[Rfam]
RNA sequence: GGCAACUAUUACCUCCCAUCGAAAGGAGGUGAGUGCCUUGAAAGAUUUCCUUACUUCGGUUGUUGCCCCUAUCCUUGUGGGUAUAGUGCUUGCACUAUUCGAUCACUGGCUAGAUGAUCGGCAUAACAACCAUAAACGUUAAUAGUUGCCUUUCUACCCUCAACACUUAGCAGGUUGCACUAAGUGUAAAA
Numbered sequence: 001g002g003c004a005a006c007u008a009u010u011a012c013c014u015c016c017c018a019u020c021g022a023a024a025g026g027a028g029g030u031g032a033g034u035g036c037c038u039u040g041a042a043a044g045a046u047u048u049c050c051u052u053a054c055u056u057c058g059g060u061u062g063u064u065g066c067c068c069c070u071a072u073c074c075u076u077g078u079g080g081g082u083a084u085a086g087u088g089c090u091u092g093c094a095c096u097a098u099u100c101g102a103u104c105a106c107u108g109g110c111u112a113g114a115u116g117a118u119c120g121g122c123a124u125a126a127c128a129a130c131c132a133u134a135a136a137c138g139u140u141a142a143u144a145g146u147u148g149c150c151u152u153u154c155u156a157c158c159c160u161c162a163a164c165a166c167u168u169a170g171c172a173g174g175u176u177g178c179a180c181u182a183a184g185u186g187u188a189a190a191a
Stems, first nucleotide, its partner, number of pairs: 001150008013028004030042001058131006064123003067081003083098006099113001101111001103109002164186007
Rfam assigns this 191-nucleotide sequence to the family "Enterococcus sRNA B11". The family's RNA type in Rfam is small RNA.